[Rfam]
RNA: mir-26 microRNA precursor family
RNA sequence: CCUCUGCCUGGUUCAAGUAAUCCAGGAUAGGCUGGUCUUCACCCGUGCGGCCUAUUCGUGAUUACUUGUUUCAGGAACUGG
Numbered sequence: 001c002c003u004c005u006g007c008c009u010g011g012u013u014c015a016a017g018u019a020a021u022c023c024a025g026g027a028u029a030g031g032c033u034g035g036u037c038u039u040c041a042c043c044c045g046u047g048c049g050g051c052c053u054a055u056u057c058g059u060g061a062u063u064a065c066u067u068g069u070u071u072c073a074g075g076a077a078c079u080g081g
Stems, first nucleotide, its partner, number of pairs: 002080001005077001007075005014068009025057009